RNA: azaaromatic riboswitch aptamer (yjdF RNA)
RNA sequence: AUAUACAGAGAUAAAAACACAGUCCCGGUUGAUAGUCCGGGCAUAGCAUUUAUUGCUAUCAGUAACCUGCCUCCUUGGUUGUCCUUUCUUUGUUUAUAAUUA
Numbered sequence: 001a002u003a004u005a006c007a008g009a010g011a012u013a014a015a016a017a018c019a020c021a022g023u024c025c026c027g028g029u030u031g032a033u034a035g036u037c038c039g040g041g042c043a044u045a046g047c048a049u050u051u052a053u054u055g056c057u058a059u060c061a062g063u064a065a066c067c068u069g070c071c072u073c074c075u076u077g078g079u080u081g082u083c084c085u086u087u088c089u090u091u092g093u094u095u096a097u098a099a100u101u102a
Base pairs, nucleotide, nucleotide: 005093006092007091008090009089010088011087022042023041025040026039027038028037043059044058045057046056047055048054069079070078071077